[Rfam]
RNA sequence: GAAUGAGAUGAUGAACAGGAUUUUGUUUCCCUAUUGGUUUGAUCACCGGUAUGAUGGUGUCUACUUACGUAUUAGCUCUAUCUGAUCAUUC
Numbered sequence: 001g002a003a004u005g006a007g008a009u010g011a012u013g014a015a016c017a018g019g020a021u022u023u024u025g026u027u028u029c030c031c032u033a034u035u036g037g038u039u040u041g042a043u044c045a046c047c048g049g050u051a052u053g054a055u056g057g058u059g060u061c062u063a064c065u066u067a068c069g070u071a072u073u074a075g076c077u078c079u080a081u082c083u084g085a086u087c088a089u090u091c
Stems, first nucleotide, its partner, number of pairs: 002090004041061001044059004
RNA: Small nucleolar RNA Z102/R77